[Rfam]
RNA: Bacterial large subunit ribosomal RNA, nucleotides 907 to 1349
RNA sequence: CUCCCCGAAAUGUCUAGAGGGACAGCCUCGUGUCAGCCGUAACGGAGGUAGAGCACUGAAUGGGCUAGGGGCGUUCCAACGCUACUGAACCCAAUCAAACUCCGAAUGCCGUUACUGGACGCACGGGAGUGAGACUACGAGUGCUAAGAUCCGUGGUCAAAAGGGAAAUAGCCCAGACCGUCAGCUAAGGUCCCUAAGCGCAAGCUAAGUGGGAAAGGUUGUAACGUCGCUCAGACAGCCAGGAGGUUGGCUUAGAAGCAGCCAUCCUUUAAAGAGUGCGUAAUAGCUCACUGGUCGAGCGAUGGUGCGCCGAAAAUUUAUCGGGGCUCAAGUUUGCCACCGAAGCUACGGACUUCCAUUGCAAGAUGGAAGUGGUAGGGGAGCAUUCUCUGUGCCGUGAAGGUUGAUCGACAAGAACAGCUGGAGCGCAGAGAAGAGAUUAU
Numbered sequence: 001c002u003c004c005c006c007g008a009a010a011u012g013u014c015u016a017g018a019g020g021g022a023c024a025g026c027c028u029c030g031u032g033u034c035a036g037c038c039g040u041a042a043c044g045g046a047g048g049u050a051g052a053g054c055a056c057u058g059a060a061u062g063g064g065c066u067a068g069g070g071g072c073g074u075u076c077c078a079a080c081g082c083u084a085c086u087g088a089a090c091c092c093a094a095u096c097a098a099a100c101u102c103c104g105a106a107u108g109c110c111g112u113u114a115c116u117g118g119a120c121g122c123a124c125g126g127g128a129g130u131g132a133g134a135c136u137a138c139g140a141g142u143g144c145u146a147a148g149a150u151c152c153g154u155g156g157u158c159a160a161a162a163g164g165g166a167a168a169u170a171g172c173c174c175a176g177a178c179c180g181u182c183a184g185c186u187a188a189g190g191u192c193c194c195u196a197a198g199c200g201c202a203a204g205c206u207a208a209g210u211g212g213g214a215a216a217g218g219u220u221g222u223a224a225c226g227u228c229g230c231u232c233a234g235a236c237a238g239c240c241a242g243g244a245g246g247u248u249g250g251c252u253u254a255g256a257a258g259c260a261g262c263c264a265u266c267c268u269u270u271a272a273a274g275a276g277u278g279c280g281u282a283a284u285a286g287c288u289c290a291c292u293g294g295u296c297g298a299g300c301g302a303u304g305g306u307g308c309g310c311c312g313a314a315a316a317u318u319u320a321u322c323g324g325g326g327c328u329c330a331a332g333u334u335u336g337c338c339a340c341c342g343a344a345g346c347u348a349c350g351g352a353c354u355u356c357c358a359u360u361g362c363a364a365g366a367u368g369g370a371a372g373u374g375g376u377a378g379g380g381g382a383g384c385a386u387u388c389u390c391u392g393u394g395c396c397g398u399g400a401a402g403g404u405u406g407a408u409c410g411a412c413a414a415g416a417a418c419a420g421c422u423g424g425a426g427c428g429c430a431g432a433g434a435a436g437a438g439a440u441u442a443u
Base pairs, nucleotide, nucleotide: 001383002382003381004380005379006378011024012023013022014021015020026129027127028126029125030124031123032122033121036120037117039115040114041113042112043111044110045109051103052101053100057097058096059095061093062092063091064090068086069085070083071082072081073080074079133158134157135156136155137154138153139152141150142149163174164173165172178351179350180349181348183347184346185345189341190340191339198338200337201336202335203334204333205332217311218310219309221308222307223306225304226303227302228301229300230299238295239294240293241292242291244268245267246266249263250262251261269273274289278287279286352373353372354371355370356369357368358367359366384438386435387434388433389432390431391430392429393428394427395426402422403421404420405419406418408416409415